A member of the RNA family "TPP riboswitch aptamer (THI element)" from Virgibacillus pantothenticus, 100 nucleotides long. The match comes from Rfam's covariance-model search (79 bits). Pairs were carried over by alignment from the consensus structure, which is taken from published work.
[Rfam]
RNA sequence: AUGUUUCACUAGGGGAGCAAUUUUAUUGCUGAGAAAGGAAACUUGACCCUUUGAACCUGAUCUAGUUUACACUAGCGUAGGGAAGUGAUGACUUGCAACA
Numbered sequence: 001a002u003g004u005u006u007c008a009c010u011a012g013g014g015g016a017g018c019a020a021u022u023u024u025a026u027u028g029c030u031g032a033g034a035a036a037g038g039a040a041a042c043u044u045g046a047c048c049c050u051u052u053g054a055a056c057c058u059g060a061u062c063u064a065g066u067u068u069a070c071a072c073u074a075g076c077g078u079a080g081g082g083a084a085g086u087g088a089u090g091a092c093u094u095g096c097a098a099c100a
Stems, first nucleotide, its partner, number of pairs: 006088005011050004016044001017029005036043002056081004062075004
Lineage of the source: Bacteria > Bacillota > Caryophanales > Bacillaceae > Virgibacillus.